[Rfam]
RNA sequence: CGUCGCCGUCGCAACUGGCGUUCAGAUGGGUCACCAUCAGGAAGCGACUGACACGGCGAGGGGCCGUUCGCCUGGGCCCUCAGC
Numbered sequence: 001c002g003u004c005g006c007c008g009u010c011g012c013a014a015c016u017g018g019c020g021u022u023c024a025g026a027u028g029g030g031u032c033a034c035c036a037u038c039a040g041g042a043a044g045c046g047a048c049u050g051a052c053a054c055g056g057c058g059a060g061g062g063g064c065c066g067u068u069c070g071c072c073u074g075g076g077c078c079c080u081c082a083g084c
Stems, first nucleotide, its partner, number of pairs: 003053001006050001008048005015041002017072004026037004061079005
The record is an 84-nucleotide RNA sequence from Chryseoglobus sp. 28M-23, which matches "ZMP/ZTP riboswitch aptamer (pfl RNA motif)" in Rfam. NCBI's taxonomy places the organism under Bacteria, Actinomycetes, Micrococcales, Microbacteriaceae, Microcella. The family's consensus secondary structure is taken from published work.